[Rfam]
mir-31 microRNA precursor family: a 78-nucleotide RNA from Bagarius yarrelli. Pairs were carried over by alignment from the consensus structure, which was predicted with RNAalifold. The family has 75 seed sequences and 1,181 matches in Rfam 15.1. The literature on the family includes a 2003 paper in Dev Cell by Aravin et al., "The small RNA profile during Drosophila melanogaster development". The source organism's lineage runs through Eukaryota, Opisthokonta, Deuterostomia, Actinopteri and Bagarius.
RNA sequence: AAGACAAAAGAUGGCAAGAUGUUGGCAUAGCUGUGUUUGUUGCCCUGCUAUGCCUCCAUAUUGCCAUUUUUUACUUCU
Numbered sequence: 001a002a003g004a005c006a007a008a009a010g011a012u013g014g015c016a017a018g019a020u021g022u023u024g025g026c027a028u029a030g031c032u033g034u035g036u037u038u039g040u041u042g043c044c045c046u047g048c049u050a051u052g053c054c055u056c057c058a059u060a061u062u063g064c065c066a067u068u069u070u071u072u073a074c075u076u077c078u
Stems, first nucleotide, its partner, number of pairs: 006072012019059003024054008